The family of this 55-nucleotide sequence is "nhaA-I RNA". It is one of the family's seed sequences. Rfam describes the family as follows. Acidobacteria, Alphaproteobacteria, Betaproteobacteria and Gammaproteobacteria, Verrucomicrobia, cand. division NC10. Rfam classes the family as a riboswitch. Pairs were carried over by alignment from the consensus structure, which is taken from published work.
[Rfam]
RNA sequence: GGGUUCGACCGCACUUGCGGUCGGAGGUCAAUUCGGAUGGUCGGGCCGCCAUCCG
Numbered sequence: 001g002g003g004u005u006c007g008a009c010c011g012c013a014c015u016u017g018c019g020g021u022c023g024g025a026g027g028u029c030a031a032u033u034c035g036g037a038u039g040g041u042c043g044g045g046c047c048g049c050c051a052u053c054c055g
Stems, first nucleotide, its partner, number of pairs: 005024008034055004039050003